L13-Bacteroidia ribosomal protein leader: a 76-nucleotide RNA sequence.
A reference for the family is Eckert and Weinberg (2020), "Discovery of 20 novel ribosomal leader candidates in bacteria and archaea", BMC Microbiol.
Rfam's curators put it in the seed alignment.
RNA sequence: GAGGGUGAACUUAGAACCCUCAGCACGUUGUGUGUUAAUAGCGCUGCUUUUGGCCGGGCUGCGUGGUUAGUGAAUC
Numbered sequence: 001g002a003g004g005g006u007g008a009a010c011u012u013a014g015a016a017c018c019c020u021c022a023g024c025a026c027g028u029u030g031u032g033u034g035u036u037a038a039u040a041g042c043g044c045u046g047c048u049u050u051u052g053g054c055c056g057g058g059c060u061g062c063g064u065g066g067u068u069a070g071u072g073a074a075u076c
Base pairs, nucleotide, nucleotide: 001021002020003019004018005017006016035070036069037068038067039066041064042063043062044061046059047058048057049056